RNA sequence: UUAACAAGAAGGUUUGCCGAAAUCAUAAUGCAGCCCAAAUUCCGUCAAGCAACCGCCCCGCUGAGCUGGGAGAAAGCAUUCUCUGCGAUGGCUCGAUCCUUUUGGGACCGGAUCCUCAGCCCCCAGCCCCCCGGGACUCAUCAGGAUCGGGCCUUUCGCAAGACUUGAGUUCCGACCUUUUUCGAGCUGGCCAAAGCCGGUCCUUUU
Numbered sequence: 001u002u003a004a005c006a007a008g009a010a011g012g013u014u015u016g017c018c019g020a021a022a023u024c025a026u027a028a029u030g031c032a033g034c035c036c037a038a039a040u041u042c043c044g045u046c047a048a049g050c051a052a053c054c055g056c057c058c059c060g061c062u063g064a065g066c067u068g069g070g071a072g073a074a075a076g077c078a079u080u081c082u083c084u085g086c087g088a089u090g091g092c093u094c095g096a097u098c099c100u101u102u103u104g105g106g107a108c109c110g111g112a113u114c115c116u117c118a119g120c121c122c123c124c125a126g127c128c129c130c131c132c133g134g135g136a137c138u139c140a141u142c143a144g145g146a147u148c149g150g151g152c153c154u155u156u157c158g159c160a161a162g163a164c165u166u167g168a169g170u171u172c173c174g175a176c177c178u179u180u181u182u183c184g185a186g187c188u189g190g191c192c193a194a195a196g197c198c199g200g201u202c203c204u205u206u207u
Base pairs, nucleotide, nucleotide: 036167037166042049082162084160085159086158087157088156090153091152092151093150094149095148096147097146098145099144100143103140104139105138106137108134109133110132111131119127120126184203186201187200188199189198190197191196
Dot-bracket structure: ...................................((....(......)................................(.(((((.(((((((((((..((((.((((.......((.....))...))))..))))..)))))))))))..))))).)...))................(.((((((....)))))).)....